Bacterial RNase P class A: a 353-nucleotide RNA sequence from Candidatus Berkiella aquae.
About the family: Ribonuclease P (RNase P) is a ubiquitous endoribonuclease, found in archaea, bacteria and eukarya as well as chloroplasts and mitochondria. Its best characterised activity is the generation of mature 5'-ends of tRNAs by cleaving the 5'-leader elements of precursor-tRNAs. Cellular RNase Ps are ribonucleoproteins.
By type it is a ribozyme.
It scores 337 bits against the family's covariance model.
RNA sequence: AGAGUUGGCUAGACAAUCGCUGGAUCGGCUUGCCGGUCUGGAGGAAAGUCCGGGCUCCAUAGGGUAAAGUGCCAGGUAACGCCUGGGGGGUGAAAGCCCACGGAAAGUGCAACAGAAAGUAAACCGCCUGACAUAUUUUUAUGUUCGGUAAGGGUGAAAGGGUGCGGUAAGAGCGCACCGCGUCGGUGGUAACAUCGUACGGCACGGCAAACCCCACUCGGAGCAAGACCAAAUAGGGAUCCAUGGGUGCGACCCGCACUGGAUCCGGGUAGGUUGCUUGAGGUAUGCGGUGACGCAUAUCCCAGAGGAAUGGUUGUCCACGACAGAACCCGGCUUAUCGGCUGACUCUCAAU
Numbered sequence: 001a002g003a004g005u006u007g008g009c010u011a012g013a014c015a016a017u018c019g020c021u022g023g024a025u026c027g028g029c030u031u032g033c034c035g036g037u038c039u040g041g042a043g044g045a046a047a048g049u050c051c052g053g054g055c056u057c058c059a060u061a062g063g064g065u066a067a068a069g070u071g072c073c074a075g076g077u078a079a080c081g082c083c084u085g086g087g088g089g090g091u092g093a094a095a096g097c098c099c100a101c102g103g104a105a106a107g108u109g110c111a112a113c114a115g116a117a118a119g120u121a122a123a124c125c126g127c128c129u130g131a132c133a134u135a136u137u138u139u140u141a142u143g144u145u146c147g148g149u150a151a152g153g154g155u156g157a158a159a160g161g162g163u164g165c166g167g168u169a170a171g172a173g174c175g176c177a178c179c180g181c182g183u184c185g186g187u188g189g190u191a192a193c194a195u196c197g198u199a200c201g202g203c204a205c206g207g208c209a210a211a212c213c214c215c216a217c218u219c220g221g222a223g224c225a226a227g228a229c230c231a232a233a234u235a236g237g238g239a240u241c242c243a244u245g246g247g248u249g250c251g252a253c254c255c256g257c258a259c260u261g262g263a264u265c266c267g268g269g270u271a272g273g274u275u276g277c278u279u280g281a282g283g284u285a286u287g288c289g290g291u292g293a294c295g296c297a298u299a300u301c302c303c304a305g306a307g308g309a310a311u312g313g314u315u316g317u318c319c320a321c322g323a324c325a326g327a328a329c330c331c332g333g334c335u336u337a338u339c340g341g342c343u344g345a346c347u348c349u350c351a352a353u
Stems, first nucleotide, its partner, number of pairs: 001349010011338001012318007020041009046336003050333005055223004062255004068218004072086005087101001088099004102214002107212002109208002124153002126149003130145005161179006180203001181201003184197005227275004237266006246260005282301008